[Rfam]
RNA: MIR9563 microRNA precursor family
RNA sequence: GGAAUAUAAGAAACCGUCUCUUGACUUUUAACUAAAAAAACUAAGAACCGAUUCUUAGUUUUUUAAGUUAAAAGUCAAAAGACGGUUUCUUAUAUUUC
Numbered sequence: 001g002g003a004a005u006a007u008a009a010g011a012a013a014c015c016g017u018c019u020c021u022u023g024a025c026u027u028u029u030a031a032c033u034a035a036a037a038a039a040a041c042u043a044a045g046a047a048c049c050g051a052u053u054c055u056u057a058g059u060u061u062u063u064u065a066a067g068u069u070a071a072a073a074g075u076c077a078a079a080a081g082a083c084g085g086u087u088u089c090u091u092a093u094a095u096u097u098c
Stems, first nucleotide, its partner, number of pairs: 001098019021078013035064005041058007